Overview:
The record is a 102-nucleotide RNA from Epulopiscium sp. Nele67-Bin005, which matches "SAM riboswitch aptamer (S box leader)" in Rfam.

RNA sequence: AUCUUAUCAAGAGAGGCAGAGGGAGUGGCCCUGUGAAGCCCAGCAACCUGUUAACACAAGGUGCUAAAUCCAACAACUAAAAAUUUAGUUGAAAGAUGAGUA
Numbered sequence: 001a002u003c004u005u006a007u008c009a010a011g012a013g014a015g016g017c018a019g020a021g022g023g024a025g026u027g028g029c030c031c032u033g034u035g036a037a038g039c040c041c042a043g044c045a046a047c048c049u050g051u052u053a054a055c056a057c058a059a060g061g062u063g064c065u066a067a068a069u070c071c072a073a074c075a076a077c078u079a080a081a082a083a084u085u086u087a088g089u090u091g092a093a094a095g096a097u098g099a100g101u102a
Stems, first nucleotide, its partner, number of pairs: 003100006013041001015040003021031003026072003042065004047061002049058003069094001074091006